[Rfam]
RNA sequence: GGAUUGACUUGAGCGCCAGAACUCAUGGUUGGUCACCAAAGAAGAGUUGACGAGGACAGGGAGUAUCGAAAUUUCGGCGGAUGCCCUGGAUAGCAUCUUUUAAAACGGAAGAGUGAUCCUUCGGACAAAGAAGAUGAAAUCAUAUG
Numbered sequence: 001g002g003a004u005u006g007a008c009u010u011g012a013g014c015g016c017c018a019g020a021a022c023u024c025a026u027g028g029u030u031g032g033u034c035a036c037c038a039a040a041g042a043a044g045a046g047u048u049g050a051c052g053a054g055g056a057c058a059g060g061g062a063g064u065a066u067c068g069a070a071a072u073u074u075c076g077g078c079g080g081a082u083g084c085c086c087u088g089g090a091u092a093g094c095a096u097c098u099u100u101u102a103a104a105a106c107g108g109a110a111g112a113g114u115g116a117u118c119c120u121u122c123g124g125a126c127a128a129a130g131a132a133g134a135u136g137a138a139a140u141c142a143u144a145u146g
Base pairs, nucleotide, nucleotide: 020048021047022046023045024044026042029039057088058087059086060085061084066077067076068075069074094136095135096134097133098132099131106123107122108121109120111118112117
Rfam assigns this 146-nucleotide RNA from Eubacterium aggregans to the family "glmS glucosamine-6-phosphate activated ribozyme aptamer". Pairs were carried over by alignment from the consensus structure, which is taken from published work. Taxonomically the source falls in Eubacterium (Bacteria, Bacillati, Clostridia, Eubacteriales).